[Rfam]
RNA: Glycine riboswitch aptamer
Organism: Paractinoplanes abujensis
RNA sequence: CUCUGGAAAGCCGGGUGAUGUCCGCCCGCGCCCAAGGUGCAAACCGCCAUUUUCCUGGCGGUGAAGCUCUCAGGCCCGAUGACAGAG
Numbered sequence: 001c002u003c004u005g006g007a008a009a010g011c012c013g014g015g016u017g018a019u020g021u022c023c024g025c026c027c028g029c030g031c032c033c034a035a036g037g038u039g040c041a042a043a044c045c046g047c048c049a050u051u052u053u054c055c056u057g058g059c060g061g062u063g064a065a066g067c068u069c070u071c072a073g074g075c076c077c078g079a080u081g082a083c084a085g086a087g
Stems, first nucleotide, its partner, number of pairs: 001087005012028004030075003034070001037069001039067001043062007